[Rfam]
RNA sequence: GGUGACAACGAGAGAGAGCACGCCGGAAUGCGUUCAUGCAGCGAGUGCCUGGAGGUGUUCGAGCGUGCCCUCUCCCGUCGUCACC
Dot-bracket structure: ..((((..((..((.(.((((((..((((...........................))))..)))))).).))..))..))))..
Numbered sequence: 001g002g003u004g005a006c007a008a009c010g011a012g013a014g015a016g017a018g019c020a021c022g023c024c025g026g027a028a029u030g031c032g033u034u035c036a037u038g039c040a041g042c043g044a045g046u047g048c049c050u051g052g053a054g055g056u057g058u059u060c061g062a063g064c065g066u067g068c069c070c071u072c073u074c075c076c077g078u079c080g081u082c083a084c085c
Stems, first nucleotide, its partner, number of pairs: 003083004009077002013073002016070001018068006026060004